The family of this 76-nucleotide sequence from Hyphomicrobium nitrativorans is "Makes More Granules Regulator RNA (mmgR)". A search with the family's covariance model found it, with a score of 78 bits. Rfam's curators write: SuhB later renamed mmgR (makes more granules regulator) was a putative non-coding RNA found multiple times in the Agrobacterium tumefaciens genome and related alpha-proteobacteria. Other non-coding RNAs uncovered in the same analysis include: speF, ybhL, metA, and serC.Several studies inSinorhizobium meliloti showed that suhB element is indeed a non-coding RNA:firstly it was detected on Northern blot and called Sm8RNA, secondly in an RNAseq study referred to as SmelC689.The mutant phenotype's (strain lacking the small RNA) cytoplasm contains higher content of polyhydroxybutyrate (PBH)storage granules than wild type strain. The sRNA is required to limit the PBH intracellular accumulation when the nitrogen-fixing Sinorhizobium meliloti is under condition of surplus carbon in relation to nitrogen. It has been renamed to mmgR. Further study confirmed that mmgR fine-tunes the regulation of PBH storage.Northern blot confirmed the expression of the sRNA in other rhizobia species. MmgR homologues were found in most alpha-proteobacteria. Clan: suhB sRNA clan. The source organism's lineage runs through Bacteria, Pseudomonadota, Alphaproteobacteria, Hyphomicrobiaceae and Hyphomicrobium nitrativorans.
RNA sequence: UGUCGUUGCCCUCCUUGGGCGUUUCCUCCCUAGACUUGGGCCGUCCAUACCCUGGACGGCCCUUUUUUUGUCGGGU
Numbered sequence: 001u002g003u004c005g006u007u008g009c010c011c012u013c014c015u016u017g018g019g020c021g022u023u024u025c026c027u028c029c030c031u032a033g034a035c036u037u038g039g040g041c042c043g044u045c046c047a048u049a050c051c052c053u054g055g056a057c058g059g060c061c062c063u064u065u066u067u068u069u070g071u072c073g074g075g076u
Base pairs, nucleotide, nucleotide: 008020009019010018011017039061040060041059042058043057044056045055046054047053
Dot-bracket structure: .......((((.....))))..................(((((((((.....)))))))))...............